[Rfam]
This 183-nucleotide sequence from Gordonia hirsuta belongs to the Rfam family "c-di-AMP riboswitch aptamer (ydaO/yuaA leader)".
Taxonomically the source falls in Gordonia hirsuta (Bacteria, Bacillati, Gordoniaceae, Gordonia).

RNA sequence: GGGAGGUCACCGCCUAAUCGCUCCACUGUCGCAGCGGAGUGAAUCGGGGACCCACUUACUUCCCUGCGCCGCGGCCGACGAGGCCGUGUCACGGGGAUCGGGGUGAAUCGCGGGAGACCGCGUAGGGCCAUCUCUUCCGGCCCGAACCCGACAGCUAACCCGGUCGGCGGUCAGGGAGAACUA
Numbered sequence: 001g002g003g004a005g006g007u008c009a010c011c012g013c014c015u016a017a018u019c020g021c022u023c024c025a026c027u028g029u030c031g032c033a034g035c036g037g038a039g040u041g042a043a044u045c046g047g048g049g050a051c052c053c054a055c056u057u058a059c060u061u062c063c064c065u066g067c068g069c070c071g072c073g074g075c076c077g078a079c080g081a082g083g084c085c086g087u088g089u090c091a092c093g094g095g096g097a098u099c100g101g102g103g104u105g106a107a108u109c110g111c112g113g114g115a116g117a118c119c120g121c122g123u124a125g126g127g128c129c130a131u132c133u134c135u136u137c138c139g140g141c142c143c144g145a146a147c148c149c150g151a152c153a154g155c156u157a158a159c160c161c162g163g164u165c166g167g168c169g170g171u172c173a174g175g176g177a178g179a180a181c182u183a
Stems, first nucleotide, its partner, number of pairs: 011169004018042007043164006053100001101149003109122004125143004
Rfam links the family to the GO terms cyclic-di-AMP binding and regulation of gene expression.